[Rfam]
RNA sequence: AGGUAUUUUGAGUAUAUGGGGAUAAAUAGCUUACAUUCAACGAUCAGAAUGCGAGGAAAAACGAAUGGGGGAUAAGAUCCCCCAUUUUUAUCAGUA
Numbered sequence: 001a002g003g004u005a006u007u008u009u010g011a012g013u014a015u016a017u018g019g020g021g022a023u024a025a026a027u028a029g030c031u032u033a034c035a036u037u038c039a040a041c042g043a044u045c046a047g048a049a050u051g052c053g054a055g056g057a058a059a060a061a062c063g064a065a066u067g068g069g070g071g072a073u074a075a076g077a078u079c080c081c082c083c084a085u086u087u088u089u090a091u092c093a094g095u096a
Stems, first nucleotide, its partner, number of pairs: 009039001011037003017033004063087011
A member of the RNA family "sraA" from Affinibrenneria salicis, 96 nucleotides long. Lineage of the source: Bacteria > Pseudomonadati > Gammaproteobacteria > Enterobacterales > Affinibrenneria. The family's consensus secondary structure was predicted with RNAalifold. By type it is a small RNA.